[Rfam]
RNA sequence: GGUAGUACGUACGACUGGCGGAUUGGUGGAGCACCACAGGGAGUAUGUAUGAAGAAAGCCGGCCGCCUGGGUACCCUUA
Numbered sequence: 001g002g003u004a005g006u007a008c009g010u011a012c013g014a015c016u017g018g019c020g021g022a023u024u025g026g027u028g029g030a031g032c033a034c035c036a037c038a039g040g041g042a043g044u045a046u047g048u049a050u051g052a053a054g055a056a057a058g059c060c061g062g063c064c065g066c067c068u069g070g071g072u073a074c075c076c077u078u079a
Stems, first nucleotide, its partner, number of pairs: 003052001005050008015040002017067005026037004058072003
RNA: ZMP/ZTP riboswitch aptamer (pfl RNA motif)
Organism: Eisenbergiella massiliensis